The record is a 105-nucleotide RNA sequence from Histidinibacterium lentulum, which matches "TPP riboswitch aptamer (THI element)" in Rfam. Lineage of the source: Bacteria > Pseudomonadati > Pseudomonadota > Paracoccaceae > Histidinibacterium. It scores 77 bits against the family's covariance model.
RNA sequence: CGCCUCACCUCGGGGUGCCCGGUCGACCGGGCUGAGAUGCGACAUCGCGAACCCGUUGAACCUGACCCGGCUCGUACCGGCGGAGGGAAGGUGAAGCGGCAUCCC
Numbered sequence: 001c002g003c004c005u006c007a008c009c010u011c012g013g014g015g016u017g018c019c020c021g022g023u024c025g026a027c028c029g030g031g032c033u034g035a036g037a038u039g040c041g042a043c044a045u046c047g048c049g050a051a052c053c054c055g056u057u058g059a060a061c062c063u064g065a066c067c068c069g070g071c072u073c074g075u076a077c078c079g080g081c082g083g084a085g086g087g088a089a090g091g092u093g094a095a096g097c098g099g100c101a102u103c104c105c
Base pairs, nucleotide, nucleotide: 006093007092008091009090010089011055012054013053014052016049017032018031019030020029021028039048040047041046061086062085063084067080068079069078070077